[Rfam]
RNA sequence: AUUAAAAGUAAUCACUUUUAUCGUAUAAAGUUGGUAAUAUGGUCCAACAGUUUCUACCAAAUCGCCUUAAAUGAUUUGACUACGAUAUGUCGAUAUACAUAU
Numbered sequence: 001a002u003u004a005a006a007a008g009u010a011a012u013c014a015c016u017u018u019u020a021u022c023g024u025a026u027a028a029a030g031u032u033g034g035u036a037a038u039a040u041g042g043u044c045c046a047a048c049a050g051u052u053u054c055u056a057c058c059a060a061a062u063c064g065c066c067u068u069a070a071a072u073g074a075u076u077u078g079a080c081u082a083c084g085a086u087a088u089g090u091c092g093a094u095a096u097a098c099a100u101a102u
Base pairs, nucleotide, nucleotide: 019087020086021085022084023083024082025081030048031047032046033045034044058078059077060076061075062074063073064072
This 102-nucleotide RNA sequence from Clostridium disporicum belongs to the Rfam family "Purine riboswitch aptamer". Pairs were carried over by alignment from the consensus structure, which is taken from published work. Taxonomically the source falls in Clostridium (Bacteria, Bacillota, Clostridia, Eubacteriales). Rfam links the family to the GO term purine nucleobase biosynthetic process.